[Rfam]
RNA sequence: GAAUGUGAGAGUGCAAGUGGACCAGCAGUGUCCCUUCUUCGGCCGCAAGGAGCGCUCACACAUUC
Numbered sequence: 001g002a003a004u005g006u007g008a009g010a011g012u013g014c015a016a017g018u019g020g021a022c023c024a025g026c027a028g029u030g031u032c033c034c035u036u037c038u039u040c041g042g043c044c045g046c047a048a049g050g051a052g053c054g055c056u057c058a059c060a061c062a063u064u065c
Stems, first nucleotide, its partner, number of pairs: 001065007009057005017034001019033004037049003
Dot-bracket structure: (((((((.(((((...(.((((.......)))))..(((.......)))...))))).)))))))
A member of the RNA family "bZIP non canonical Hac1/Xbp1 intron", 65 nucleotides long. The literature on the family includes a 2011 paper in RNA Biol by Hooks and Griffiths-Jones, "Conserved RNA structures in the non-canonical Hac1/Xbp1 intron". The family has 112 seed sequences and 1,325 matches in Rfam 15.1. Rfam's curators write: bZIP intron RNA is a non-canonical intron that was first reported in HAC1 gene in yeast and XBP1 gene in Metazoa.